Archaeal RNase P: a 278-nucleotide RNA sequence from Nitrosopumilus sp. b1.
The family's RNA type in Rfam is ribozyme.
About the family: Ribonuclease P (RNase P) is a ubiquitous endoribonuclease, found in archaea, bacteria and eukarya as well as chloroplasts and mitochondria. Its best characterised activity is the generation of mature 5'-ends of tRNAs by cleaving the 5'-leader elements of precursor-tRNAs. Cellular RNase Ps are ribonucleoproteins. RNA from bacterial RNase Ps retains its catalytic activity in the absence of the protein subunit, i.e. it is a ribozyme. Isolated eukaryotic and archaeal RNase P RNA has not been shown to retain its catalytic function, but is still essential for the catalytic activity of the holoenzyme. Although the archaeal and eukaryotic holoenzymes have a much greater protein content than the bacterial ones, the RNA cores from all the three lineages are homologous -- helices corresponding to P1, P2, P3, P4, and P10/11 are common to all cellular RNase P RNAs. Yet, there is considerable sequence variation, particularly among the eukaryotic RNAs.
RNA sequence: GCGAGCCAGAGCACGAGACGCUGCUACGGCAGAGGAAACUCCUCCCUCCAUACAGGAAAUGUGAUCUGGAGAUAGAUGAUCAGAGAUGGUCGGCAACAGUGCAGAAAAAAUCCAACUUGGAGCACAAUGAUGGUGUAAGCCUGAGAUUGCCAAGAAAGGAAUGAAAAACUGUCCCACAUGGAGCAAAGCCAAACAGAACUUUAGGUUCCUGUACUUAGUUCAGGUAGGCUGCAAAGCGAAAUAUCGUGAGAACAAAAGGAGGGUUACUACUGGCACGC
Numbered sequence: 001g002c003g004a005g006c007c008a009g010a011g012c013a014c015g016a017g018a019c020g021c022u023g024c025u026a027c028g029g030c031a032g033a034g035g036a037a038a039c040u041c042c043u044c045c046c047u048c049c050a051u052a053c054a055g056g057a058a059a060u061g062u063g064a065u066c067u068g069g070a071g072a073u074a075g076a077u078g079a080u081c082a083g084a085g086a087u088g089g090u091c092g093g094c095a096a097c098a099g100u101g102c103a104g105a106a107a108a109a110a111u112c113c114a115a116c117u118u119g120g121a122g123c124a125c126a127a128u129g130a131u132g133g134u135g136u137a138a139g140c141c142u143g144a145g146a147u148u149g150c151c152a153a154g155a156a157a158g159g160a161a162u163g164a165a166a167a168a169c170u171g172u173c174c175c176a177c178a179u180g181g182a183g184c185a186a187a188g189c190c191a192a193a194c195a196g197a198a199c200u201u202u203a204g205g206u207u208c209c210u211g212u213a214c215u216u217a218g219u220u221c222a223g224g225u226a227g228g229c230u231g232c233a234a235a236g237c238g239a240a241a242u243a244u245c246g247u248g249a250g251a252a253c254a255a256a257a258g259g260a261g262g263g264u265u266a267c268u269a270c271u272g273g274c275a276c277g278c
Stems, first nucleotide, its partner, number of pairs: 001278003005274005010268002012248005021032004037265003041262005046183004051213005059179005064077005078091005092174002097171004111160003116154005132141002187230004196221005